[Rfam]
RNA sequence: GGAGGGGUACUCAAGCGGUCAACGAGGGCAGACUGUAAAUCUGCUGGCUAUGCCUUCGGAGGUUCGAAUCCUCCCCCCUCCA
Numbered sequence: 001g002g003a004g005g006g007g008u009a010c011u012c013a014a015g016c017g018g019u020c021a022a023c024g025a026g027g028g029c030a031g032a033c034u035g036u037a038a039a040u041c042u043g044c045u046g047g048c049u050a051u052g053c054c055u056u057c058g059g060a061g062g063u064u065c066g067a068a069u070c071c072u073c074c075c076c077c078c079u080c081c082a
Stems, first nucleotide, its partner, number of pairs: 001081007010026003028044005058074005
This 82-nucleotide sequence from Marinihelvus fidelis belongs to the Rfam family "tRNA". The match comes from Rfam's covariance-model search (56 bits). Pairs were carried over by alignment from the consensus structure, which is taken from published work.